[Rfam]
RNA sequence: UAUAAAAGUGUCAUCAAUGAAUCGAAAGCUAAGGGAUUUAUACCCUAUGCUGAAUGGACAUUUGAUGACUUGAUCUGUACGAGCAAGUAAGGCAUUUGCCUGGAUUGCGAAUACGAUCGGUGAUGUCGAAAGUGCACAGCACGAAGACAUCGACUUUUAUA
Numbered sequence: 001u002a003u004a005a006a007a008g009u010g011u012c013a014u015c016a017a018u019g020a021a022u023c024g025a026a027a028g029c030u031a032a033g034g035g036a037u038u039u040a041u042a043c044c045c046u047a048u049g050c051u052g053a054a055u056g057g058a059c060a061u062u063u064g065a066u067g068a069c070u071u072g073a074u075c076u077g078u079a080c081g082a083g084c085a086a087g088u089a090a091g092g093c094a095u096u097u098g099c100c101u102g103g104a105u106u107g108c109g110a111a112u113a114c115g116a117u118c119g120g121u122g123a124u125g126u127c128g129a130a131a132g133u134g135c136a137c138a139g140c141a142c143g144a145a146g147a148c149a150u151c152g153a154c155u156u157u158u159a160u161a
Stems, first nucleotide, its partner, number of pairs: 001161007011068004017061003022056001027051003032046001033044002036041001072118004077114003083108004090101004121152007132142004
The family of this 161-nucleotide RNA sequence from Clostridiales bacterium CHKCI001 is "Clostridiales-1 RNA". Rfam 15.1 lists 1,172 matches to the family in 137 species. Lineage of the source: Bacteria > Bacillati > Bacillota > Clostridia > Eubacteriales. The family's RNA type in Rfam is small RNA.